RNA: Small nucleolar RNA SNORA38
Organism: Cnephaeus nilssonii
RNA sequence: CCCUUCUACAAAGGCAUGUCUGUGGUUUCCCUGUCUUUGGACAUAAUUGGAGGCAAGGAAAUGUGAACUUGGAGAAGUCUGGAACCUCAAGACUUCCUGCAGGCUCACGAUUAACCAUCCCACAUAG
Numbered sequence: 001c002c003c004u005u006c007u008a009c010a011a012a013g014g015c016a017u018g019u020c021u022g023u024g025g026u027u028u029c030c031c032u033g034u035c036u037u038u039g040g041a042c043a044u045a046a047u048u049g050g051a052g053g054c055a056a057g058g059a060a061a062u063g064u065g066a067a068c069u070u071g072g073a074g075a076a077g078u079c080u081g082g083a084a085c086c087u088c089a090a091g092a093c094u095u096c097c098u099g100c101a102g103g104c105u106c107a108c109g110a111u112u113a114a115c116c117a118u119c120c121c122a123c124a125u126a127g
Base pairs, nucleotide, nucleotide: 002053003052004051005050006049016044017043018042019041020040021039024031025030065120067118069117090105091104093102094101